[Rfam]
RNA sequence: GCCGAGCUCUGUAACGCAAGCUUGUAACCCGAGUGGGGGCUUUGAGGUGCUGGAACAUUGGCUAAGUAUUAGCGGGUCGGGUUCAGGUUGGCUAUCUACUGGCCCGCCCAUUCCAAGCCAAGAGUUGAACCCUGUGGCUCAAGCGAAGGCUCUGGGUCACUUGUUUUAUAGAGCGGAGGGAACCGCGUAAGGCUGGCUUAACAGAGCAACGACUACCUCCCGCUCUUGGCAGUGGAAGGAUAACGGGUCGGUGGUCACUUGGAUCCAUCAUGGCUCGCUAGGCUGUCUCAAUUGAACCAAAACCGUU
Dot-bracket structure: ((((((((..........)))))....(((....))))))...(.(((..(((..((((((.(.(((.(((((((((((((((((((.(((.((....((((((((.((.(((((.(((((((((.(((.(..(((((((((((....))).))))))))..).))).......(((((......(((....(((......)))....)))....))))).)))))))))..)))))))....)))))))))).)))))))))))).....)))))))))))))).).))).))..)))..))).).
The family of this 307-nucleotide sequence from Prunus yedoensis is "Plant signal recognition particle RNA". It scores 228 bits against the family's covariance model. The family's consensus secondary structure is taken from published work. Lineage of the source: Eukaryota > Embryophyta > Euphyllophyta > eudicotyledons > Prunus yedoensis. It is annotated as a non-coding RNA gene.